[Rfam]
Rfam assigns this 109-nucleotide RNA from Paenibacillus sp. YN15 to the family "TPP riboswitch aptamer (THI element)".
Gene Ontology term of the family: thiamine pyrophosphate binding.
RNA sequence: CAUAUGAAGCAUGGGAGUCCGCAGGAGCGGGCUGAGAGUACGGCUGUCCGCCGUUUACCAUUGGAACCUGUUGGAUCAUGCCAGCGCAGGGAGCUUGCCCGUUUGAGGC
Numbered sequence: 001c002a003u004a005u006g007a008a009g010c011a012u013g014g015g016a017g018u019c020c021g022c023a024g025g026a027g028c029g030g031g032c033u034g035a036g037a038g039u040a041c042g043g044c045u046g047u048c049c050g051c052c053g054u055u056u057a058c059c060a061u062u063g064g065a066a067c068c069u070g071u072u073g074g075a076u077c078a079u080g081c082c083a084g085c086g087c088a089g090g091g092a093g094c095u096u097g098c099c100c101g102u103u104u105g106a107g108g109c
Base pairs, nucleotide, nucleotide: 007096008095009094010093011061012060013059014058016055017032018031019030020029021028040054041053042052043051067090068089069088070087071084072083073082074081
Dot-bracket structure: ......((((((((.((((((......))))).......((((.......)))))..)))).....((((((((......))))..))))..)))).............
A search with the family's covariance model found it, with a score of 56 bits.